A member of the RNA family "L31-Firmicutes ribosomal protein leader", 32 nucleotides long. Clan: Ribosomal Protein L31 Leader clan. The sequence is in the family's curated seed alignment. Pairs were carried over by alignment from the consensus structure, which is taken from published work.

[Rfam]
RNA sequence: CUAUGUCAGGAAAACUGUCAUGGCGGAAGGAG
Numbered sequence: 001c002u003a004u005g006u007c008a009g010g011a012a013a014a015c016u017g018u019c020a021u022g023g024c025g026g027a028a029g030g031a032g
Base pairs, nucleotide, nucleotide: 001023002022003021004020005019007017008016009015